Background: Shown here is a 165-nucleotide part of an RNA from Capsaspora owczarzaki, a member of the family "Eukaryotic small subunit ribosomal RNA". The literature on the family includes a 2001 paper in Science by Yusupov et al., "Crystal structure of the ribosome at 5.5 A resolution". The family has 90 seed sequences and 75,755 matches in Rfam 15.1. Its family is annotated with structural constituent of ribosome and ribosome in the Gene Ontology.
RNA sequence: CCGCCCGUCGCUACUACCGAUUGAAUGGUUUAGUGAGAUCUCCGGACUGACAUUUUGCAGCUGGCAACAGCCGCGAGGUGACGAGAAGUUGCUCAAACUUGAUCAUUUAGAGGAAGUAAAAGUCGUAACAAGGUUACCGUUGGUGAACCAGCGGUAGGAUCAUUA
Numbered sequence: 001c002c003g004c005c006c007g008u009c010g011c012u013a014c015u016a017c018c019g020a021u022u023g024a025a026u027g028g029u030u031u032a033g034u035g036a037g038a039u040c041u042c043c044g045g046a047c048u049g050a051c052a053u054u055u056u057g058c059a060g061c062u063g064g065c066a067a068c069a070g071c072c073g074c075g076a077g078g079u080g081a082c083g084a085g086a087a088g089u090u091g092c093u094c095a096a097a098c099u100u101g102a103u104c105a106u107u108u109a110g111a112g113g114a115a116g117u118a119a120a121a122g123u124c125g126u127a128a129c130a131a132g133g134u135u136a137c138c139g140u141u142g143g144u145g146a147a148c149c150a151g152c153g154g155u156a157g158g159a160u161c162a163u164u165a
Stems, first nucleotide, its partner, number of pairs: 001132001003129001006125002009122001012118004017113002021109001023108008032099003037094002040091001043088001048083002051080007060071003134157010